RNA: Bacterial large subunit ribosomal RNA, nucleotides 618 to 681
RNA sequence: AGUGGGAGCACUAUACUCUUGCUUCGGCAGGGGAAUGUGUGACCGCAUACCUUUUGCAUAAUGA
Numbered sequence: 001a002g003u004g005g006g007a008g009c010a011c012u013a014u015a016c017u018c019u020u021g022c023u024u025c026g027g028c029a030g031g032g033g034a035a036u037g038u039g040u041g042a043c044c045g046c047a048u049a050c051c052u053u054u055u056g057c058a059u060a061a062u063g064a
Base pairs, nucleotide, nucleotide: 002046003045004044005043008040009039010038011037050063052061